Shown here is a 235-nucleotide RNA from Sphingomonas adhaesiva, a member of the family "permuted transfer-messenger RNA". It is annotated as a non-coding RNA gene. Bacterial tmRNA, also known as 10Sa RNA or SsrA, is named for its dual tRNA and mRNA-like properties. Its role is to liberate the mRNA from a stalled ribosome. To accomplish this part of the tmRNA is used as a reading frame that ends in a translation stop signal. The broken mRNA is replaced in the ribosome by the tmRNA and translation of the tmRNA leads to addition of a proteolysis tag to the incomplete protein enabling recognition by a protease. Recently a number of permuted tmRNA genes have been found encoded in two parts. tmRNAs have been identified in eubacteria and some chloroplasts but are absent from archaeal and eukaryote nuclear genomes. The source organism's lineage runs through Bacteria, Pseudomonadati, Alphaproteobacteria, Sphingomonadales and Sphingomonas.

RNA sequence: GGCGAUAAACCAUGGCGUAGAAUAGAUGCAGCGGACCCGGGGGCAGUACCCGGCGGCUCCACCAUCUGCGCCGCAUGGCCGGCGCGUUACACGCGCGACGGCGGCGGCGUAGCUGACGGGGCCGAACCAGGAUCGACGUGUAUUGAAAGGCGCCGUCUUCGCUCGGAAUGGGACCACCGCAACGGCCCAUUACACAAGUGCCAACGAUAACGAAGCACUCGCGAUGGCGGCGUAA
Numbered sequence: 001g002g003c004g005a006u007a008a009a010c011c012a013u014g015g016c017g018u019a020g021a022a023u024a025g026a027u028g029c030a031g032c033g034g035a036c037c038c039g040g041g042g043g044c045a046g047u048a049c050c051c052g053g054c055g056g057c058u059c060c061a062c063c064a065u066c067u068g069c070g071c072c073g074c075a076u077g078g079c080c081g082g083c084g085c086g087u088u089a090c091a092c093g094c095g096c097g098a099c100g101g102c103g104g105c106g107g108c109g110u111a112g113c114u115g116a117c118g119g120g121g122c123c124g125a126a127c128c129a130g131g132a133u134c135g136a137c138g139u140g141u142a143u144u145g146a147a148a149g150g151c152g153c154c155g156u157c158u159u160c161g162c163u164c165g166g167a168a169u170g171g172g173a174c175c176a177c178c179g180c181a182a183c184g185g186c187c188c189a190u191u192a193c194a195c196a197a198g199u200g201c202c203a204a205c206g207a208u209a210a211c212g213a214a215g216c217a218c219u220c221g222c223g224a225u226g227g228c229g230g231c232g233u234a235a
Stems, first nucleotide, its partner, number of pairs: 001163005015153004027142003031139003037053005054124007164179003